Source information:
This 367-nucleotide RNA from Gallibacterium salpingitidis belongs to the Rfam family "transfer-messenger RNA". The match comes from Rfam's covariance-model search (264 bits). Rfam classes the family as a non-coding RNA gene. NCBI's taxonomy places the organism under Bacteria, Pseudomonadati, Pseudomonadota, Pasteurellales, Gallibacterium. About the family: Bacterial tmRNA, also known as 10Sa RNA or SsrA, is named for its dual tRNA and mRNA-like properties. Its role is to liberate the mRNA from a stalled ribosome. To accomplish this part of the tmRNA is used as a reading frame that ends in a translation stop signal. The broken mRNA is replaced in the ribosome by the tmRNA and translation of the tmRNA leads to addition of a proteolysis tag to the incomplete protein enabling recognition by a protease.

RNA sequence: GGGGCUGAUCUAGGAUUCGACGGGAUUAGCGAAGCCCAAGGUGCAUGUCGAGGUGCGGUAGGCCUCGUAAAUAAACCGCAAAACAAUAGUCGCAAACGACGAACAAUUUGCUUUAGCAGCUUAAUAACCUGCCUUAAAGCCUUAUCUCCUCAGCUUCCGCUCGUAAGACGAGGGUUCAGAUAAGUCAUCCUAAACGAGAUCGUGUGGAAGCCGCCGCUUGAGGAUCGAAACACUAAAUUAAAUCAAGCUAGCUUAUUUAUCGCGUGUCUGUCCGCAGUGAGUAAGUGAAAUUAAAGACUAGACUAAACAUGUAGUGCUGAAGGUAGAGGAAUUUCGGACGGGGGUUCAACUCCCCCCAGCUCCACCA
Numbered sequence: 001g002g003g004g005c006u007g008a009u010c011u012a013g014g015a016u017u018c019g020a021c022g023g024g025a026u027u028a029g030c031g032a033a034g035c036c037c038a039a040g041g042u043g044c045a046u047g048u049c050g051a052g053g054u055g056c057g058g059u060a061g062g063c064c065u066c067g068u069a070a071a072u073a074a075a076c077c078g079c080a081a082a083a084c085a086a087u088a089g090u091c092g093c094a095a096a097c098g099a100c101g102a103a104c105a106a107u108u109u110g111c112u113u114u115a116g117c118a119g120c121u122u123a124a125u126a127a128c129c130u131g132c133c134u135u136a137a138a139g140c141c142u143u144a145u146c147u148c149c150u151c152a153g154c155u156u157c158c159g160c161u162c163g164u165a166a167g168a169c170g171a172g173g174g175u176u177c178a179g180a181u182a183a184g185u186c187a188u189c190c191u192a193a194a195c196g197a198g199a200u201c202g203u204g205u206g207g208a209a210g211c212c213g214c215c216g217c218u219u220g221a222g223g224a225u226c227g228a229a230a231c232a233c234u235a236a237a238u239u240a241a242a243u244c245a246a247g248c249u250a251g252c253u254u255a256u257u258u259a260u261c262g263c264g265u266g267u268c269u270g271u272c273c274g275c276a277g278u279g280a281g282u283a284a285g286u287g288a289a290a291u292u293a294a295a296g297a298c299u300a301g302a303c304u305a306a307a308c309a310u311g312u313a314g315u316g317c318u319g320a321a322g323g324u325a326g327a328g329g330a331a332u333u334u335c336g337g338a339c340g341g342g343g344g345u346u347c348a349a350c351u352c353c354c355c356c357c358a359g360c361u362c363c364a365c366c367a
Stems, first nucleotide, its partner, number of pairs: 001363007021336007034324003040318003044311005049067005054080006112138004116132004141184006148173004154167003160198005202233004216248005251286010262275003266303004270298003340356005